[Rfam]
RNA sequence: AUGCAUCCAACAGGAAUUAAACCUACGAGAUUGCCAAUUAUGAGUUGGGCACUUUAACCAUUCAAUUAUGAAUGC
Numbered sequence: 001a002u003g004c005a006u007c008c009a010a011c012a013g014g015a016a017u018u019a020a021a022c023c024u025a026c027g028a029g030a031u032u033g034c035c036a037a038u039u040a041u042g043a044g045u046u047g048g049g050c051a052c053u054u055u056a057a058c059c060a061u062u063c064a065a066u067u068a069u070g071a072a073u074g075c
Base pairs, nucleotide, nucleotide: 003075004074005073006072008070012024013023014022040069041068042067044066045065046064047063048062049061

Plastid-ycf2 5UTR RNA: a 75-nucleotide RNA sequence from Vanilla planifolia. A search with the family's covariance model found it, with a score of 67 bits. Rfam describes the family as follows. Plastid ycf2 is a non-coding RNA (ncRNA) recognised in plastids. It was found in the prime untranslated region (5UTR) of ycf2 genes, it presents a tRNA-like motif which suggests it can be involved in mRNA maturation, particularly involved in defining the precise 5' end of the transcript. It is annotated as a cis-regulatory element.